[Rfam]
RNA: M-box riboswitch aptamer (ykoK leader)
Organism: Peribacillus loiseleuriae
RNA sequence: GAUUAUUUUAGUUAGAUGAGGCUCCUAUGCUGGAGAUAUGCUGCUCCUAGAAACGUUCAAAGACGCCAAUGGGUCAACAGGAACCAUCGACAUAAGGUGUUUUUUAUGUAGCUGGAACAUGCUAAACCGCAUAGUGCAAAAGCUCAACGAUUGCUGAAUUGUAU
Numbered sequence: 001g002a003u004u005a006u007u008u009u010a011g012u013u014a015g016a017u018g019a020g021g022c023u024c025c026u027a028u029g030c031u032g033g034a035g036a037u038a039u040g041c042u043g044c045u046c047c048u049a050g051a052a053a054c055g056u057u058c059a060a061a062g063a064c065g066c067c068a069a070u071g072g073g074u075c076a077a078c079a080g081g082a083a084c085c086a087u088c089g090a091c092a093u094a095a096g097g098u099g100u101u102u103u104u105u106a107u108g109u110a111g112c113u114g115g116a117a118c119a120u121g122c123u124a125a126a127c128c129g130c131a132u133a134g135u136g137c138a139a140a141a142g143c144u145c146a147a148c149g150a151u152u153g154c155u156g157a158a159u160u161g162u163a164u
Base pairs, nucleotide, nucleotide: 005160007158008157009156010155011148012147013095015144017142021137022136025134026133027132028131029130030129032128033127040112041111042110043109044108046073047072048071049070054065055064056063057062080104081103082102083101086098087097088096114122116120